[Rfam]
RNA: Ribosomal protein L20 leader
Organism: Macrococcus lamae
RNA sequence: ACGGACAAGUAGAAGCAUCCCGCUUCUCACCUUGAAGACGCCGAGAGCUGUUACAAGGUAAAAUAACAUGAUCAAACAUGUCUAUUUUUGCGGGUGCCUUGUGCGCCUGCUUUUUUUGUUCGUC
Number, nucleotide and partner (000 for none) at each position: 001a000002c000003g000004g000005a000006c000007a000008a000009g000010u000011a027012g026013a025014a024015g023016c022017a000018u000019c000020c000021c000022g016023c015024u014025u013026c012027u011028c000029a059030c058031c057032u000033u000034g000035a000036a000037g052038a051039c050040g048041c047042c000043g000044a000045g000046a000047g041048c040049u000050g039051u038052u037053a000054c000055a000056a000057g031058g030059u029060a000061a000062a000063a000064u000065a000066a000067c000068a000069u000070g000071a000072u000073c000074a000075a000076a000077c000078a000079u000080g000081u000082c000083u000084a000085u000086u000087u000088u000089u000090g110091c109092g108093g107094g106095u105096g104097c103098c000099u000100u000101g000102u000103g097104c096105g095106c094107c093108u092109g091110c090111u000112u000113u000114u000115u000116u000117u000118g000119u000120u000121c000122g000123u000124c000